[Rfam]
RNA sequence: ACCGAUCCUCCACGUGACGGUAUCAUCCGAACCUCCCCAGGGCCGGAAGGCAGCAAGGAUAAGGGUGCGCUGCCGGGUGCGUGGAGGGUCCUUCAU
Numbered sequence: 001a002c003c004g005a006u007c008c009u010c011c012a013c014g015u016g017a018c019g020g021u022a023u024c025a026u027c028c029g030a031a032c033c034u035c036c037c038c039a040g041g042g043c044c045g046g047a048a049g050g051c052a053g054c055a056a057g058g059a060u061a062a063g064g065g066u067g068c069g070c071u072g073c074c075g076g077g078u079g080c081g082u083g084g085a086g087g088g089u090c091c092u093u094c095a096u
Stems, first nucleotide, its partner, number of pairs: 004090011015077001018075005024067005034059003042051003
Dot-bracket structure: ...((((((((((((..(((((.(((((.....(((.....(((....))).....)))...)))))...))))).)..)))))))))))......
This 96-nucleotide sequence from Schaalia hyovaginalis belongs to the Rfam family "Bacterial small signal recognition particle RNA". NCBI's taxonomy places the organism under Bacteria, Bacillati, Actinomycetota, Actinomycetaceae, Schaalia. It is annotated as a non-coding RNA gene. Rfam's curators write: The signal recognition particle (SRP) is a universally conserved ribonucleoprotein involved in the co-translational targeting of proteins to membranes.